[Rfam]
A member of the RNA family "Ribosomal protein L19 leader" from Halobacillus salinus, 38 nucleotides long. Lineage of the source: Bacteria > Bacillota > Bacilli > Caryophanales > Halobacillus. Rfam's curators write: This family is a putative r-protein leader autoregulatory structure found in B. subtilis and other low-GC Gram-positive bacteria. The family's consensus secondary structure was predicted with CMfinder. A search with the family's covariance model found it, with a score of 41 bits.

RNA sequence: ACGAUGUUCCGCUGUUUCAUAGAAGACAUGAGCAUUAG
Numbered sequence: 001a002c003g004a005u006g007u008u009c010c011g012c013u014g015u016u017u018c019a020u021a022g023a024a025g026a027c028a029u030g031a032g033c034a035u036u037a038g
Base pairs, nucleotide, nucleotide: 003036004035005034006033007032008031009030013028014027015025016024017023018022